The family of this 185-nucleotide RNA from Listeria innocua is "Listeria sRNA rli28". The family has 21 seed sequences and 345 matches in Rfam 15.1. Pairs were carried over by alignment from the consensus structure, which was predicted with RNAalifold. By type it is a small RNA. The source organism's lineage runs through Bacteria, Bacillati, Bacillota, Listeriaceae and Listeria.
RNA sequence: UUUUGAAUGCUAUAAUAGUAAAUGCAGUAGCAAAGUGAAUAGACGGUGGCUAAUCCUCAGUAGGGGAUGAUGCCUAUGGUUUACAAAGGUUUUACUCCUAGAAAGGAAUAAAGCAUGUCUGUAUUUGAAGCAAUGACUUUAAUGUUGGCUUUUGCCACAUUGGUUGUGCUGAUACUAGACUUUAA
Numbered sequence: 001u002u003u004u005g006a007a008u009g010c011u012a013u014a015a016u017a018g019u020a021a022a023u024g025c026a027g028u029a030g031c032a033a034a035g036u037g038a039a040u041a042g043a044c045g046g047u048g049g050c051u052a053a054u055c056c057u058c059a060g061u062a063g064g065g066g067a068u069g070a071u072g073c074c075u076a077u078g079g080u081u082u083a084c085a086a087a088g089g090u091u092u093u094a095c096u097c098c099u100a101g102a103a104a105g106g107a108a109u110a111a112a113g114c115a116u117g118u119c120u121g122u123a124u125u126u127g128a129a130g131c132a133a134u135g136a137c138u139u140u141a142a143u144g145u146u147g148g149c150u151u152u153u154g155c156c157a158c159a160u161u162g163g164u165u166g167u168g169c170u171g172a173u174a175c176u177a178g179a180c181u182u183u184a185a
Stems, first nucleotide, its partner, number of pairs: 046158005063099004068094003072090002117137003122132001124130001163180003168175001